[Rfam]
RNA: tRNA
RNA sequence: GCUCUCGUAGCUCAGCUGGAUAGAGUACCUGGCUACGAACCAGGCGGUCGAAGGUUCGAAUCCUUCCGAGCGCG
Dot-bracket structure: ((.((((..((((.........)))).(((((.......))))).....(((((.......))))))))).)).
Numbered sequence: 001g002c003u004c005u006c007g008u009a010g011c012u013c014a015g016c017u018g019g020a021u022a023g024a025g026u027a028c029c030u031g032g033c034u035a036c037g038a039a040c041c042a043g044g045c046g047g048u049c050g051a052a053g054g055u056u057c058g059a060a061u062c063c064u065u066c067c068g069a070g071c072g073c074g
Stems, first nucleotide, its partner, number of pairs: 001073002004070004010026004028044005050066005